[Rfam]
RNA sequence: ACUCGGGCACGAUCUUCCGCGCAGACGGGGGAACCGACCCGUAGUCCAACCCUGAGGGA
Numbered sequence: 001a002c003u004c005g006g007g008c009a010c011g012a013u014c015u016u017c018c019g020c021g022c023a024g025a026c027g028g029g030g031g032a033a034c035c036g037a038c039c040c041g042u043a044g045u046c047c048a049a050c051c052c053u054g055a056g057g058g059a
Base pairs, nucleotide, nucleotide: 001045002044003043004041005040006039007038013032014031015030016029017028018027019026
RNA: L31-Corynebacteriaceae ribosomal protein leader
Organism: Corynebacterium lizhenjunii